[Rfam]
Description: The record is a 46-nucleotide RNA sequence from Verrucomicrobia bacterium LW23, which matches "Acido-Lenti-1 RNA" in Rfam. The match comes from Rfam's covariance-model search (40 bits). It is annotated as a small RNA. Rfam 15.1 lists 2,607 matches to the family in 171 species.
RNA sequence: CCCUGGGUUUACACCCUGGGCUAUAGGCUUUCGCGCCUGUGGCGCU
Numbered sequence: 001c002c003c004u005g006g007g008u009u010u011a012c013a014c015c016c017u018g019g020g021c022u023a024u025a026g027g028c029u030u031u032c033g034c035g036c037c038u039g040u041g042g043c044g045c046u
Base pairs, nucleotide, nucleotide: 001020002019003018005016006015007014008013033045034044035043036042037041